[Rfam]
RNA: Purine riboswitch aptamer
RNA sequence: UAUUCGACAUAUUAACAUAUUCGUAUAAUCCUGCGGAUUGGCGCAGGAGUCUCUACGUGAUCACCGGAAUGAUCUCUCUACGGAAAUUAGUACCUGUCAG
Numbered sequence: 001u002a003u004u005c006g007a008c009a010u011a012u013u014a015a016c017a018u019a020u021u022c023g024u025a026u027a028a029u030c031c032u033g034c035g036g037a038u039u040g041g042c043g044c045a046g047g048a049g050u051c052u053c054u055a056c057g058u059g060a061u062c063a064c065c066g067g068a069a070u071g072a073u074c075u076c077u078c079u080a081c082g083g084a085a086a087u088u089a090g091u092a093c094c095u096g097u098c099a100g
Stems, first nucleotide, its partner, number of pairs: 018086001020084006029048007057076001059074005
Dot-bracket structure: .................(.((((((...(((((((......)))))))........(.(((((......))))).)..)))))).)..............